[Rfam]
RNA: Pyrrolysine insertion sequence mttB
RNA sequence: AUGACGGAUUCGAAAAUCCCGGAUGCACAAUCAGGUUUUGAGAAAGGUGUCACUGUGGCCCUGGCCGGUCACGCCGGGGCGGCCAUGAUCCACGAAAGCGCAG
Numbered sequence: 001a002u003g004a005c006g007g008a009u010u011c012g013a014a015a016a017u018c019c020c021g022g023a024u025g026c027a028c029a030a031u032c033a034g035g036u037u038u039u040g041a042g043a044a045a046g047g048u049g050u051c052a053c054u055g056u057g058g059c060c061c062u063g064g065c066c067g068g069u070c071a072c073g074c075c076g077g078g079g080c081g082g083c084c085a086u087g088a089u090c091c092a093c094g095a096a097a098g099c100g101c102a103g
Stems, first nucleotide, its partner, number of pairs: 025032001033062003077101001079099002